[Rfam]
RNA: Small nucleolar RNA U54
Organism: Aegilops tauschii
RNA sequence: AUCUCAGUGAUUUCAGUCCAAUACUUUGGUCAUAUAUGCUAUUCUGAAUAUGUUGUAAAAUAAACUUAUGAGAGCU
Dot-bracket structure: (.(((..................................................................))).)